[Rfam]
RNA sequence: AAUUUUAAAAUAAUAUUAUUUUGCAUCCUGACCUAUACAGGCCUCUGCUAUGGGGGUGAUGGCCUGUCCUGGUGUCUGAGUGAUU
Numbered sequence: 001a002a003u004u005u006u007a008a009a010a011u012a013a014u015a016u017u018a019u020u021u022u023g024c025a026u027c028c029u030g031a032c033c034u035a036u037a038c039a040g041g042c043c044u045c046u047g048c049u050a051u052g053g054g055g056g057u058g059a060u061g062g063c064c065u066g067u068c069c070u071g072g073u074g075u076c077u078g079a080g081u082g083a084u085u
Base pairs, nucleotide, nucleotide: 001085002084003083004082006080010075011074019071023067024066025065026062027061029059031057032056033055034054038052039051040049041048042047
The record is an 85-nucleotide RNA sequence from Pipistrellus kuhlii, which matches "Small nucleolar RNA SNORD86" in Rfam. Rfam describes the family as follows. U86 belongs to the C/D family of snoRNAs. It is the human orthologue of Xenopus laevis U86 and has no identified RNA target. On this family, see Filippini et al., Biochem Biophys Res Commun 2001: "U86, a novel snoRNA with an unprecedented gene organization in yeast". Taxonomically the source falls in Pipistrellus (Eukaryota, Eumetazoa, Sarcopterygii, Tetrapoda).